Shown here is a 103-nucleotide RNA sequence from Neisseria sp. oral taxon 014, a member of the family "TPP riboswitch aptamer (THI element)".

[Rfam]
RNA sequence: CCGCAGAAGUCGGGGUGCUGCUGCCGUAACGGGUGGCGGCUGAGAUGAUACCCGUGAACCUGAUACAGAUAAUGCUGGCGUAGGAAACUGAUGAAACUUUUUG
Numbered sequence: 001c002c003g004c005a006g007a008a009g010u011c012g013g014g015g016u017g018c019u020g021c022u023g024c025c026g027u028a029a030c031g032g033g034u035g036g037c038g039g040c041u042g043a044g045a046u047g048a049u050a051c052c053c054g055u056g057a058a059c060c061u062g063a064u065a066c067a068g069a070u071a072a073u074g075c076u077g078g079c080g081u082a083g084g085a086a087a088c089u090g091a092u093g094a095a096a097c098u099u100u101u102u103g
Base pairs, nucleotide, nucleotide: 008089009088010087011054012053013052014051016048017040018039019038020037021036022035023034024033025032059084060083061082062081066077067076068075
Overview: Lineage of the source: Bacteria > Betaproteobacteria > Neisseriaceae > Neisseria > Neisseria sp. oral taxon 014.